[Rfam]
RNA sequence: AGCAAAAUGAUGAGAAUUUUCAUAAUCCGAAUUCCCGUGUGGAAUCUUCUUAUCAGAUUAUGGUCUUCAAAGUUCUCUGAUUGCU
Numbered sequence: 001a002g003c004a005a006a007a008u009g010a011u012g013a014g015a016a017u018u019u020u021c022a023u024a025a026u027c028c029g030a031a032u033u034c035c036c037g038u039g040u041g042g043a044a045u046c047u048u049c050u051u052a053u054c055a056g057a058u059u060a061u062g063g064u065c066u067u068c069a070a071a072g073u074u075c076u077c078u079g080a081u082u083g084c085u
Base pairs, nucleotide, nucleotide: 001085002084003083004082005081
The record is an 85-nucleotide RNA from Sesamum indicum, which matches "Small nucleolar RNA R160" in Rfam. The match comes from Rfam's covariance-model search (64 bits). About the family: snoR160 is a C/D box small nucleolar RNA, which acts as a methylation guide for 25S ribosomal RNA in plants. snoR160 has been alternatively named snoZ270 in rice. The base pairs follow the family's consensus structure. Rfam 15.1 lists 799 matches to the family in 221 species. NCBI's taxonomy places the organism under Eukaryota, Viridiplantae, Spermatophyta, eudicotyledons, Sesamum. Rfam links the family to the GO terms nucleolus and RNA processing.